RNA sequence: ACGACCUUACUUGAACAGGAUCUGUUCUAUAGGAUCGUACAUCUGUAUCCUUUAGCACAAAGGAGACAGGAACCCAAACCUGGUGGAUGAAUAAGGACCAUGCGAUCAGAGCGUGAUUGACGGUUUGGUUGGACCCUUGGGUCUAACGUAGCUGUAAAGGAUCGUUCCUUCAUUACCUAGCUUUGAAGGUUGGUCGCAUGGUUGUCUGACAGGCU
Numbered sequence: 001a002c003g004a005c006c007u008u009a010c011u012u013g014a015a016c017a018g019g020a021u022c023u024g025u026u027c028u029a030u031a032g033g034a035u036c037g038u039a040c041a042u043c044u045g046u047a048u049c050c051u052u053u054a055g056c057a058c059a060a061a062g063g064a065g066a067c068a069g070g071a072a073c074c075c076a077a078a079c080c081u082g083g084u085g086g087a088u089g090a091a092u093a094a095g096g097a098c099c100a101u102g103c104g105a106u107c108a109g110a111g112c113g114u115g116a117u118u119g120a121c122g123g124u125u126u127g128g129u130u131g132g133a134c135c136c137u138u139g140g141g142u143c144u145a146a147c148g149u150a151g152c153u154g155u156a157a158a159g160g161a162u163c164g165u166u167c168c169u170u171c172a173u174u175a176c177c178u179a180g181c182u183u184u185g186a187a188g189g190u191u192g193g194u195c196g197c198a199u200g201g202u203u204g205u206c207u208g209a210c211a212g213g214c215u
Stems, first nucleotide, its partner, number of pairs: 001038002003035001005033003013027006043069004048064006079213004097202012110166004120155006128147008168188005173179001